[Rfam]
RNA: Lysine riboswitch aptamer
RNA sequence: AGUGAGGAUAGAGGCGCAAAGACCAUGAGUAAGCAGAUGGAGGAACAUGAGGUCCUUUGAAAUUUGCUGAAAGGGGGAUUUGCCGAAGCAGUCAGCCGCUCAUGAGUUGAUUGCUGGUUUCGUAUUGAACAGGUACGGAACUGUCAUAUGGCACGUUCACUGGUGCUAUAUGGAGGGCUAUCUCACGC
Numbered sequence: 001a002g003u004g005a006g007g008a009u010a011g012a013g014g015c016g017c018a019a020a021g022a023c024c025a026u027g028a029g030u031a032a033g034c035a036g037a038u039g040g041a042g043g044a045a046c047a048u049g050a051g052g053u054c055c056u057u058u059g060a061a062a063u064u065u066g067c068u069g070a071a072a073g074g075g076g077g078a079u080u081u082g083c084c085g086a087a088g089c090a091g092u093c094a095g096c097c098g099c100u101c102a103u104g105a106g107u108u109g110a111u112u113g114c115u116g117g118u119u120u121c122g123u124a125u126u127g128a129a130c131a132g133g134u135a136c137g138g139a140a141c142u143g144u145c146a147u148a149u150g151g152c153a154c155g156u157u158c159a160c161u162g163g164u165g166c167u168a169u170a171u172g173g174a175g176g177g178c179u180a181u182c183u184c185a186c187g188c
Base pairs, nucleotide, nucleotide: 006183007182008181009180010179011178016083017082018081019080020079023076024075032068033067034066035065036064037063038062087115088114089113090112091111092110093109094108095107096106116142117141118140119139120138121137122136123135124134125133126132144173145172146171147170148169149168150167151166152165153164154163